The family of this 129-nucleotide RNA from Nannospalax galili is "Small nucleolar RNA SNORA61".
Gene Ontology terms of the family: RNA processing and nucleolus.
NCBI's taxonomy places the organism under Eukaryota, Deuterostomia, Dipnotetrapodomorpha, Spalacidae, Nannospalax.
Rfam's curators write: ACA61 is a member of the H/ACA class of snoRNA that guide the sites of modification of uridines to pseudouridines.
[Rfam]
RNA sequence: GCCCUCAGGUUCUCCUUCCCAUCAGAUCUCAACAUUGGUCUUGGUGGUUGCAAAGGAGGGAGAGCACGCUGAAGCUGGCCUCACAGCCUUGUAGCCUGGUAUAAGCAUGUGGGCUGGAUUCAAACAGGG
Numbered sequence: 001g002c003c004c005u006c007a008g009g010u011u012c013u014c015c016u017u018c019c020c021a022u023c024a025g026a027u028c029u030c031a032a033c034a035u036u037g038g039u040c041u042u043g044g045u046g047g048u049u050g051c052a053a054a055g056g057a058g059g060g061a062g063a064g065c066a067c068g069c070u071g072a073a074g075c076u077g078g079c080c081u082c083a084c085a086g087c088c089u090u091g092u093a094g095c096c097u098g099g100u101a102u103a104a105g106c107a108u109g110u111g112g113g114c115u116g117g118a119u120u121c122a123a124a125c126a127g128g129g
Stems, first nucleotide, its partner, number of pairs: 003059004019047005025040004075117007090107003